Record summary:
Shown here is a 122-nucleotide RNA, a member of the family "Caenorhabditis snoRNA ceN43". Gene Ontology terms of the family: nucleolus and RNA processing. Pairs were carried over by alignment from the consensus structure, which was predicted with RNAalifold. The match comes from Rfam's covariance-model search (60 bits). It is annotated as an H/ACA-box small nucleolar RNA. The literature on the family includes a 2007 paper in BMC Mol Biol by Jia et al., "Systematic identification of non-coding RNA 2,2,7-trimethylguanosine cap structures in Caenorhabditis elegans".
[Rfam]
Nucleotides: 122
Stems, first nucleotide, its partner, number of pairs: 003055004008049002016042003023035001025033002068115007076107003080103003
Number, partner (000 for none) and nucleotide at each position: 001000c002000g003055c004054c005053c006052g007000g008049u009048c010000u011000g012000u013000g014000c015000c016042u017041c018040g019000g020000a021000u022000c023035a024000a025033c026032c027000u028000a029000c030000g031000u032026g033025g034000c035023u036000g037000u038000g039000a040018c041017g042016g043000u044000u045000u046000c047000c048009g049008g050000a051000u052006c053005g054004g055003g056000a057000a058000a059000a060000u061000g062000g063000a064000a065000u066000u067000g068115c069114g070113u071112c072111g073110u074109a075000c076107c077106g078105a079000u080103g081102g082101a083000a084000g085000c086000g087000g088000u089000u090000c091000c092000g093000g094000a095000g096000c097000c098000a099000a100000c101082u102081c103080u104000c105078u106077c107076g108000g109074u110073g111072u112071g113070a114069c115068g116000c117000a118000c119000a120000u121000u122000u